Annotation:
Shown here is a 588-nucleotide part of an RNA from Desulfoscipio gibsoniae, a member of the family "Bacterial small subunit ribosomal RNA".

RNA sequence: UGACGGGGGCCCGCACAAGCGGUGGAGUAUGUGGUUUAAUUCGACGCAACGCGAAGAACCUUACCAGGUCUUGACAUCUCCUGAUCGUCAUGGAAACAUGAUCUUUCCCUUCGGGGAACAGGAAGACAGGUGGUGCAUGGUUGUCGUCAGCUCGUGUCGUGAGAUGUUGGGUUAAGUCCCGCAACGAGCGCAACCCCUACCUUUAGUUGCCAGCAUGUAGAGAUGGGCACUCUAAAGGGACUGCCGUUGACAAAACGGAGGAAGGUGGGGAUGACGUCAAAUCAUCAUGCCCUUUAUGAUCUGGGCUACACACGUACUACAAUGGCCGGUACAGACGGAAGCGCAGCCGUGAGGUGAAGCGAACCCGAUAAAGCCGGUCCCAGUUCGGAUUGCAGGCUGCAACUCGCCUGCAUGAAGUCGGAAUCGCUAGUAAUCGCAGGUCAGCAUACUGCGGUGAAUACGUUCCCGGGCCUUGUACACACCGCCCGUCACACCACGAAAGUUGGCAACACCCGAAGCCGGUGAGUUAACCGUAAGGAAACAGCCGUCGAAGGUGGGGUCGGUAAUUGGGGUGAAGUCGUAACAAGG
Numbered sequence: 001u002g003a004c005g006g007g008g009g010c011c012c013g014c015a016c017a018a019g020c021g022g023u024g025g026a027g028u029a030u031g032u033g034g035u036u037u038a039a040u041u042c043g044a045c046g047c048a049a050c051g052c053g054a055a056g057a058a059c060c061u062u063a064c065c066a067g068g069u070c071u072u073g074a075c076a077u078c079u080c081c082u083g084a085u086c087g088u089c090a091u092g093g094a095a096a097c098a099u100g101a102u103c104u105u106u107c108c109c110u111u112c113g114g115g116g117a118a119c120a121g122g123a124a125g126a127c128a129g130g131u132g133g134u135g136c137a138u139g140g141u142u143g144u145c146g147u148c149a150g151c152u153c154g155u156g157u158c159g160u161g162a163g164a165u166g167u168u169g170g171g172u173u174a175a176g177u178c179c180c181g182c183a184a185c186g187a188g189c190g191c192a193a194c195c196c197c198u199a200c201c202u203u204u205a206g207u208u209g210c211c212a213g214c215a216u217g218u219a220g221a222g223a224u225g226g227g228c229a230c231u232c233u234a235a236a237g238g239g240a241c242u243g244c245c246g247u248u249g250a251c252a253a254a255a256c257g258g259a260g261g262a263a264g265g266u267g268g269g270g271a272u273g274a275c276g277u278c279a280a281a282u283c284a285u286c287a288u289g290c291c292c293u294u295u296a297u298g299a300u301c302u303g304g305g306c307u308a309c310a311c312a313c314g315u316a317c318u319a320c321a322a323u324g325g326c327c328g329g330u331a332c333a334g335a336c337g338g339a340a341g342c343g344c345a346g347c348c349g350u351g352a353g354g355u356g357a358a359g360c361g362a363a364c365c366c367g368a369u370a371a372a373g374c375c376g377g378u379c380c381c382a383g384u385u386c387g388g389a390u391u392g393c394a395g396g397c398u399g400c401a402a403c404u405c406g407c408c409u410g411c412a413u414g415a416a417g418u419c420g421g422a423a424u425c426g427c428u429a430g431u432a433a434u435c436g437c438a439g440g441u442c443a444g445c446a447u448a449c450u451g452c453g454g455u456g457a458a459u460a461c462g463u464u465c466c467c468g469g470g471c472c473u474u475g476u477a478c479a480c481a482c483c484g485c486c487c488g489u490c491a492c493a494c495c496a497c498g499a500a501a502g503u504u505g506g507c508a509a510c511a512c513c514c515g516a517a518g519c520c521g522g523u524g525a526g527u528u529a530a531c532c533g534u535a536a537g538g539a540a541a542c543a544g545c546c547g548u549c550g551a552a553g554g555u556g557g558g559g560u561c562g563g564u565a566a567u568u569g570g571g572g573u574g575a576a577g578u579c580g581u582a583a584c585a586a587g588g
Stems, first nucleotide, its partner, number of pairs: 001479002003476003007473007015463002019427005024320001026318008034309002040055004064304007077126002079123005087102006105118004129293002132291004138287002140282003143278001145276002150189006156165003168181004195270004200238007210227002214225003241261002244258005324379007336367003341360002346355003386417001391412007433455007482587001484584001487580002492574004497569003502564006510556004518549001520547004526542003531538002